Shown here is a 164-nucleotide RNA from Lactobacillus acidophilus, a member of the family "M-box riboswitch aptamer (ykoK leader)". The sequence is in the family's curated seed alignment. The base pairs follow the family's consensus structure. Lineage of the source: Bacteria > Bacillati > Bacillota > Bacilli > Lactobacillus acidophilus.
[Rfam]
RNA sequence: UAUAAAAACUGUUAGGUGAGACUCCUACGUGAACACACGCUAUCGCCCAGAAACAUCCAGAGAUGCCAACGGGUUAAAUAGGUGUCGUCGACUUAAGGCGAGAUCCAGAUAGCUAGCAUGUGCUUACGUCACGUAGUGUUAAAACUGAACGACGAGUAUAACGG
Number, nucleotide and partner (000 for none) at each position: 001u000002a000003u000004a000005a000006a159007a000008a157009c156010u155011g150012u149013u096014a000015g146016g145017u144018g000019a000020g140021a139022c138023u000024c000025c136026u135027a134028c133029g132030u131031g130032a129033a000034c000035a000036c000037a000038c000039g113040c112041u111042a110043u109044c000045g074046c073047c072048c071049a000050g000051a000052a000053a000054c065055a064056u063057c062058c000059a000060g000061a000062g057063a056064u055065g054066c000067c000068a000069a000070c000071g048072g047073g046074u045075u000076a000077a000078a000079u000080a000081g105082g104083u103084g000085u000086c000087g099088u098089c097090g000091a000092c000093u000094u000095a000096a013097g089098g088099c087100g000101a000102g000103a083104u082105c081106c000107a000108g000109a043110u042111a041112g040113c039114u000115a124116g123117c122118a000119u000120g000121u000122g117123c116124u115125u000126a000127c000128g000129u032130c031131a030132c029133g028134u027135a026136g025137u000138g022139u021140u020141a000142a000143a000144a017145c016146u015147g000148a000149a012150c011151g000152a000153c000154g000155a010156g009157u008158a000159u006160a000161a000162c000163g000164g000